[Rfam]
RNA sequence: GGUCACGAGUGACAGUGAUAAGCCCCGGCUCGCUGUCCGGCAACCCUCGCUCCGCGGUGGGGUGCCCCGGGUGAUGACACGGUCAGGCGUCGUAAGGCGCCCUGGCAAGCGCGGACC
Numbered sequence: 001g002g003u004c005a006c007g008a009g010u011g012a013c014a015g016u017g018a019u020a021a022g023c024c025c026c027g028g029c030u031c032g033c034u035g036u037c038c039g040g041c042a043a044c045c046c047u048c049g050c051u052c053c054g055c056g057g058u059g060g061g062g063u064g065c066c067c068c069g070g071g072u073g074a075u076g077a078c079a080c081g082g083u084c085a086g087g088c089g090u091c092g093u094a095a096g097g098c099g100c101c102c103u104g105g106c107a108a109g110c111g112c113g114g115a116c117c
Stems, first nucleotide, its partner, number of pairs: 002078003009038001011037006021030002039066003044062003048057001082106005087100005
The record is a 117-nucleotide RNA sequence from Streptomyces sp. SID3343, which matches "SAM (S-adenosyl methionine) riboswitch aptamer" in Rfam. Lineage of the source: Bacteria > Actinomycetota > Actinomycetes > Kitasatosporales > Streptomyces. The base pairs follow the family's consensus structure, which is taken from published work.